A member of the RNA family "U1 spliceosomal RNA" from Microcebus murinus, 160 nucleotides long. The literature on the family includes a 1990 paper in Proc Natl Acad Sci U S A by Kretzner et al., "Saccharomyces cerevisiae U1 small nuclear RNA secondary structure contains both universal and yeast-specific domains". It scores 104 bits against the family's covariance model. The family's consensus secondary structure is taken from published work. The family is grouped with related families in Rfam's "U1 clan". Rfam links the family to the GO terms U1 snRNP, mRNA 5'-splice site recognition and pre-mRNA 5'-splice site binding.

[Rfam]
RNA sequence: UCACUUACCUGGCAGGAGAGAUACCAUGAUCGAGAAGGUGGUUUUUCCAGGGUGAGGAAAUAUGCACUCCAAAUGUACUGACCCCUGAGAUUUCCCCAAAUGCAGGAAGCUCAACUGCAUAAUUUCUGGUAGUGGGAGACUGUGUUUGUGCUCUCCCCUG
Numbered sequence: 001u002c003a004c005u006u007a008c009c010u011g012g013c014a015g016g017a018g019a020g021a022u023a024c025c026a027u028g029a030u031c032g033a034g035a036a037g038g039u040g041g042u043u044u045u046u047c048c049a050g051g052g053u054g055a056g057g058a059a060a061u062a063u064g065c066a067c068u069c070c071a072a073a074u075g076u077a078c079u080g081a082c083c084c085c086u087g088a089g090a091u092u093u094c095c096c097c098a099a100a101u102g103c104a105g106g107a108a109g110c111u112c113a114a115c116u117g118c119a120u121a122a123u124u125u126c127u128g129g130u131a132g133u134g135g136g137a138g139a140c141u142g143u144g145u146u147u148g149u150g151c152u153c154u155c156c157c158c159u160g
Base pairs, nucleotide, nucleotide: 012118013117014116015115016048018046019045020044021043023042024041025040026039027038049086050085051084052083054082056079057078060076061075062074089112090111091109092108093107095105134159135158136157138155139154142151143150144149